[Rfam]
RNA sequence: GCUCUGUUCUAAGUACUAGUGCCGCAGUUGUUCCAUUGAUUUCAAGACAUCAACUGCUACUCUGGUGCUUAACACGGGGU
Numbered sequence: 001g002c003u004c005u006g007u008u009c010u011a012a013g014u015a016c017u018a019g020u021g022c023c024g025c026a027g028u029u030g031u032u033c034c035a036u037u038g039a040u041u042u043c044a045a046g047a048c049a050u051c052a053a054c055u056g057c058u059a060c061u062c063u064g065g066u067g068c069u070u071a072a073c074a075c076g077g078g079g080u
Stems, first nucleotide, its partner, number of pairs: 001080007010071010024057007

Rfam assigns this 80-nucleotide sequence from Patiria miniata to the family "mir-252 microRNA precursor family".
It is one of the family's seed sequences.
The source organism's lineage runs through Eukaryota, Eleutherozoa, Asterozoa, Asterinidae and Patiria.